[Rfam]
RNA sequence: GUUGAUGGGAAUGUUGUUUGGCUCGAGGUCAUCUAGGUUGACGAUCUUUGUAUUUCCAUGAGAUUUUCUUGGAUUUACUUUUUAUUUUCCGGGAAAGUUUCUGGAUACAUAUGUUUAGCCCUAUAUGAUCUCGGACCAGGCUUCAUUCCCGUCAAC
Numbered sequence: 001g002u003u004g005a006u007g008g009g010a011a012u013g014u015u016g017u018u019u020g021g022c023u024c025g026a027g028g029u030c031a032u033c034u035a036g037g038u039u040g041a042c043g044a045u046c047u048u049u050g051u052a053u054u055u056c057c058a059u060g061a062g063a064u065u066u067u068c069u070u071g072g073a074u075u076u077a078c079u080u081u082u083u084a085u086u087u088u089c090c091g092g093g094a095a096a097g098u099u100u101c102u103g104g105a106u107a108c109a110u111a112u113g114u115u116u117a118g119c120c121c122u123a124u125a126u127g128a129u130c131u132c133g134g135a136c137c138a139g140g141c142u143u144c145a146u147u148c149c150c151g152u153c154a155a156c
Stems, first nucleotide, its partner, number of pairs: 001156013016141006024133009
Overview: Shown here is a 156-nucleotide sequence from Hibiscus syriacus, a member of the family "mir-166 microRNA precursor family". From the family's description: This family represents the plant microRNA (miRNA) precursor mir-166. For this family Rfam cites "MicroRNAs in plants" (Reinhart et al., Genes Dev, 2002). Rfam 15.1 lists 2,599 matches to the family in 229 species. Lineage of the source: Eukaryota > Pentapetalae > malvids > Malvaceae > Hibiscus. A search with the family's covariance model found it, with a score of 83 bits.